[Rfam]
Description: The family of this 279-nucleotide sequence from Medicago truncatula is "MIR2655 microRNA precursor family". Its family is annotated with miRNA-mediated post-transcriptional gene silencing and RISC complex in the Gene Ontology. Rfam 15.1 lists 892 matches to the family in 5 species.

RNA sequence: CCCUUAACUAUUAAAAGUUUCGUUUUGGUCCCUUAACUUACUUUUUGGUUUCGUUUUGGUCCCUUAACUCUUCCUCCGUCAACCACUUUGGUCCUUUAUGUUAGGAUGAAUGUAUUAGAGUUAAGGGACCAAAAUGAAAGCAAAAAAUAAGUUAAGGGACCAAAACGAGACCAAAAAAUAAGUUAAGGGACCAAAACGAAACUUUUAAUAGUUAAGGGACCAAAAGAUAACCCAAAAAUAAGUUAUGGGACCGAAACAAAACUUUUAAUAGUUAAGGAA
Numbered sequence: 001c002c003c004u005u006a007a008c009u010a011u012u013a014a015a016a017g018u019u020u021c022g023u024u025u026u027g028g029u030c031c032c033u034u035a036a037c038u039u040a041c042u043u044u045u046u047g048g049u050u051u052c053g054u055u056u057u058g059g060u061c062c063c064u065u066a067a068c069u070c071u072u073c074c075u076c077c078g079u080c081a082a083c084c085a086c087u088u089u090g091g092u093c094c095u096u097u098a099u100g101u102u103a104g105g106a107u108g109a110a111u112g113u114a115u116u117a118g119a120g121u122u123a124a125g126g127g128a129c130c131a132a133a134a135u136g137a138a139a140g141c142a143a144a145a146a147a148u149a150a151g152u153u154a155a156g157g158g159a160c161c162a163a164a165a166c167g168a169g170a171c172c173a174a175a176a177a178a179u180a181a182g183u184u185a186a187g188g189g190a191c192c193a194a195a196a197c198g199a200a201a202c203u204u205u206u207a208a209u210a211g212u213u214a215a216g217g218g219a220c221c222a223a224a225a226g227a228u229a230a231c232c233c234a235a236a237a238a239u240a241a242g243u244u245a246u247g248g249g250a251c252c253g254a255a256a257c258a259a260a261a262c263u264u265u266u267a268a269u270a271g272u273u274a275a276g277g278a279a
Stems, first nucleotide, its partner, number of pairs: 002277007023256003027252003031248002034245007042237002045234001047232004